[Rfam]
RNA sequence: GUCGUUCAUACUUUCAGGUCCCACAGAUGCUGUGGUCGUCCUUGUAUCACCUACUUUGCGACUGGGUUAAGGUCCGAGUCUUUCAAUCCCCUCAGGAGCUUGUCUCCUGGCCUGUCCAUCGGUCGGACUUUUUAUAAACUCUCAAGGGGUUUGCUCUUGUAAACAACUCGAGCAGGGCCCAUCAUCAGAAAUCGCUCUCGUCUCUUUACUGGACAACUGAACGAAUCCGGUCGAGACGGCUCACCUUGGGAUCGUCUCGCAUCUUUCAUAUCUGACUAGUAGUUAACACAGAUCGGGCCGAAGACAUCGAGUCACCUCGACGAGGACCUUUCGCGUCUACGAGUCUCAGAUUGAUAUUUUUGCAGGCAUCCUGGAUGAGCUACCAGCUCUCACCACGAUUCUUCGGUUUACUCUAGGGGACCAGAUUGGGAACGGUGGGUGGGGGUAGCGCUGGCUGUCUGUUGCCCCUUGGGCCUGGCAGCCGUCGAUUUAGUGCAAUCCGCGGUGAGCGAGUCCCCGAAGGUCUUCUUCUUCGCUCGCUCAACUCAAUUCGGACUACUCUUGGC
Numbered sequence: 001g002u003c004g005u006u007c008a009u010a011c012u013u014u015c016a017g018g019u020c021c022c023a024c025a026g027a028u029g030c031u032g033u034g035g036u037c038g039u040c041c042u043u044g045u046a047u048c049a050c051c052u053a054c055u056u057u058g059c060g061a062c063u064g065g066g067u068u069a070a071g072g073u074c075c076g077a078g079u080c081u082u083u084c085a086a087u088c089c090c091c092u093c094a095g096g097a098g099c100u101u102g103u104c105u106c107c108u109g110g111c112c113u114g115u116c117c118a119u120c121g122g123u124c125g126g127a128c129u130u131u132u133u134a135u136a137a138a139c140u141c142u143c144a145a146g147g148g149g150u151u152u153g154c155u156c157u158u159g160u161a162a163a164c165a166a167c168u169c170g171a172g173c174a175g176g177g178c179c180c181a182u183c184a185u186c187a188g189a190a191a192u193c194g195c196u197c198u199c200g201u202c203u204c205u206u207u208a209c210u211g212g213a214c215a216a217c218u219g220a221a222c223g224a225a226u227c228c229g230g231u232c233g234a235g236a237c238g239g240c241u242c243a244c245c246u247u248g249g250g251a252u253c254g255u256c257u258c259g260c261a262u263c264u265u266u267c268a269u270a271u272c273u274g275a276c277u278a279g280u281a282g283u284u285a286a287c288a289c290a291g292a293u294c295g296g297g298c299c300g301a302a303g304a305c306a307u308c309g310a311g312u313c314a315c316c317u318c319g320a321c322g323a324g325g326a327c328c329u330u331u332c333g334c335g336u337c338u339a340c341g342a343g344u345c346u347c348a349g350a351u352u353g354a355u356a357u358u359u360u361u362g363c364a365g366g367c368a369u370c371c372u373g374g375a376u377g378a379g380c381u382a383c384c385a386g387c388u389c390u391c392a393c394c395a396c397g398a399u400u401c402u403u404c405g406g407u408u409u410a411c412u413c414u415a416g417g418g419g420a421c422c423a424g425a426u427u428g429g430g431a432a433c434g435g436u437g438g439g440u441g442g443g444g445g446u447a448g449c450g451c452u453g454g455c456u457g458u459c460u461g462u463u464g465c466c467c468c469u470u471g472g473g474c475c476u477g478g479c480a481g482c483c484g485u486c487g488a489u490u491u492a493g494u495g496c497a498a499u500c501c502g503c504g505g506u507g508a509g510c511g512a513g514u515c516c517c518c519g520a521a522g523g524u525c526u527u528c529u530u531c532u533u534c535g536c537u538c539g540c541u542c543a544a545c546u547c548a549a550u551u552c553g554g555a556c557u558a559c560u561c562u563u564g565g566c
Stems, first nucleotide, its partner, number of pairs: 003505001006502001017063004032050005037044001074554005088444004137151005152174005177440007196425003507542007
RNA: Nuclear RNase P
Organism: Puccinia graminis